[Rfam]
RNA sequence: AGAACCUUUAAAUUAGUCCAGAGAGGCUAAAAAGGAUGUCGGGAAAGAGAUAUAUCAGGGUUUGUAUAUCUUUGUUUUCCAUGAAAAAAACACACCUUCUGCCUCGGGCAGGAGGUUUUUUGUUG
Numbered sequence: 001a002g003a004a005c006c007u008u009u010a011a012a013u014u015a016g017u018c019c020a021g022a023g024a025g026g027c028u029a030a031a032a033a034g035g036a037u038g039u040c041g042g043g044a045a046a047g048a049g050a051u052a053u054a055u056c057a058g059g060g061u062u063u064g065u066a067u068a069u070c071u072u073u074g075u076u077u078u079c080c081a082u083g084a085a086a087a088a089a090a091c092a093c094a095c096c097u098u099c100u101g102c103c104u105c106g107g108g109c110a111g112g113a114g115g116u117u118u119u120u121u122g123u124u125g
Base pairs, nucleotide, nucleotide: 003037005035006034007033008032009031013030014029015028016027017026018025044075046073047072048071049070050069051068052067053066054065055064057062090120092118094116095115096114097113098112099111100110101109102108103107
This 125-nucleotide sequence from Thermotalea metallivorans belongs to the Rfam family "PyrR binding site". Rfam classes the family as a cis-regulatory element. Pairs were carried over by alignment from the consensus structure, which is taken from published work. About the family: This family represents the PyrR binding site and terminator structure. The source organism's lineage runs through Bacteria, Bacillota, Clostridia, Thermotaleaceae and Thermotalea. It scores 68 bits against the family's covariance model.